[Rfam]
RNA sequence: AAUUCAACAGGUGUCUCAAUUUAUUUCUCUACCUUUGUUUUGUAAGGGUCUCUAGUGUUUUCAAAUGAUUGUUUCUUCUCACUUUC
Dot-bracket structure: ........(((....(..(.....((....((((((((...))))))))....)).....)..)............))).......
Notes
This 86-nucleotide RNA from Neogale vison belongs to the Rfam family "Stem loopII regulatory element in POLB". The organism belongs to Neogale, within Eukaryota. The family's consensus secondary structure is taken from published work. Rfam classes the family as a cis-regulatory element. On this family, see Sarnowska et al., Nucleic Acids Res 2007: "Hairpin structure within the 3'UTR of DNA polymerase beta mRNA acts as a post-transcriptional regulatory element and interacts with Hax-1".